A member of the RNA family "Saccharopolyspora sRNA 350" from Streptomyces laurentii, 509 nucleotides long. For this family Rfam cites "Prediction and characterization of small non-coding RNAs related to secondary metabolites in Saccharopolyspora erythraea" (Liu et al., PLoS One, 2013).
[Rfam]
RNA sequence: GUGGCGGUGUAGUCCCACUGGGCGUCGGUGUCCAGGAGGGCGUUCUCGCCGAAGCGGUCGCCGUCGGCGAGGACCGCGACGGCCACCUCGUCGCCGUACUUGCCGGACGAGGUCUGGCUGACCCGGCCGUGGGCGAUCAGGUGGAUCUGGUCGGCGGGGGUGCCGCGCUCGACCAGGACCUCGCCGGCGCGGAAGUCGCGCUGGACACAGCGGCGGGCGAGCUCGGAGAGCACCUCCUCGUCCUCGAAGCCGCGCAGCAGGGCGAGUUCGCCGAGUUCGCGGGGGAUGACGUGGACGGUGGCGCCGUCCUGGACGAACUCGAUGACACCGUCGCCGACGGUGUAGCUGAGCCGACGGUUCACCCGGUAGGUGCCGCCCUUGGUCUCCACCCAGGGGAUCGUGCGCAGCAGCCACCGGGAGGUGAUCUCCUGCAUCUGCGGGGCGGACUUGGUGGUGGUGGCGAGGUUGCGGGCCGCCGUGGUGCUCAGGCUGGACUGCGGCCGGGACGG
Numbered sequence: 001g002u003g004g005c006g007g008u009g010u011a012g013u014c015c016c017a018c019u020g021g022g023c024g025u026c027g028g029u030g031u032c033c034a035g036g037a038g039g040g041c042g043u044u045c046u047c048g049c050c051g052a053a054g055c056g057g058u059c060g061c062c063g064u065c066g067g068c069g070a071g072g073a074c075c076g077c078g079a080c081g082g083c084c085a086c087c088u089c090g091u092c093g094c095c096g097u098a099c100u101u102g103c104c105g106g107a108c109g110a111g112g113u114c115u116g117g118c119u120g121a122c123c124c125g126g127c128c129g130u131g132g133g134c135g136a137u138c139a140g141g142u143g144g145a146u147c148u149g150g151u152c153g154g155c156g157g158g159g160g161u162g163c164c165g166c167g168c169u170c171g172a173c174c175a176g177g178a179c180c181u182c183g184c185c186g187g188c189g190c191g192g193a194a195g196u197c198g199c200g201c202u203g204g205a206c207a208c209a210g211c212g213g214c215g216g217g218c219g220a221g222c223u224c225g226g227a228g229a230g231c232a233c234c235u236c237c238u239c240g241u242c243c244u245c246g247a248a249g250c251c252g253c254g255c256a257g258c259a260g261g262g263c264g265a266g267u268u269c270g271c272c273g274a275g276u277u278c279g280c281g282g283g284g285g286a287u288g289a290c291g292u293g294g295a296c297g298g299u300g301g302c303g304c305c306g307u308c309c310u311g312g313a314c315g316a317a318c319u320c321g322a323u324g325a326c327a328c329c330g331u332c333g334c335c336g337a338c339g340g341u342g343u344a345g346c347u348g349a350g351c352c353g354a355c356g357g358u359u360c361a362c363c364c365g366g367u368a369g370g371u372g373c374c375g376c377c378c379u380u381g382g383u384c385u386c387c388a389c390c391c392a393g394g395g396g397a398u399c400g401u402g403c404g405c406a407g408c409a410g411c412c413a414c415c416g417g418g419a420g421g422u423g424a425u426c427u428c429c430u431g432c433a434u435c436u437g438c439g440g441g442g443c444g445g446a447c448u449u450g451g452u453g454g455u456g457g458u459g460g461c462g463a464g465g466u467u468g469c470g471g472g473c474c475g476c477c478g479u480g481g482u483g484c485u486c487a488g489g490c491u492g493g494a495c496u497g498c499g500g501c502c503g504g505g506a507c508g509g
Stems, first nucleotide, its partner, number of pairs: 006390004011385002014382002019327001025322004031316002038310003047303005054233001058229002061226003065109002068106001072103001074102001076100001079097005117222003122217002127212001130209001132206001134204001135202001140197001143196001150190001154188002157185002160182001161178001165174001235295003240290003244286002250282005256277003260271001262269001329342004353377001355375003360372004391431007399423003403418001405416001407415001437476004443470002446467001447465003451461002477508002481502001484499001486497003
Dot-bracket structure: .....((((.((.((...(.....((((..((.....(((......(((((..(...((.(((.((.(...(.(.(..(((((.........)))))..).))..).)).......(((..((...(..(.(.((....(..(......(...((.((.((...(........)...)...).)).)).).....))....).).)..)..)...))..))).))).))...).(((..(((.((....(((((.(((.(.(......).)...))))))))..)).)))..)))...)))))....)))....))..))))....).((((......))))..........(.(((..((((.....))))))).)...)).)).))))(((((((.(((.(.(.(.......)).)..))).))))))).....((((..((.((((.((.......)).))).).))..))))((..(..(.(((......))).)..)....)).
Source information:
Its family is annotated with regulation of secondary metabolite biosynthetic process in the Gene Ontology. The source organism's lineage runs through Bacteria, Actinomycetes, Kitasatosporales, Streptomycetaceae and Streptomyces.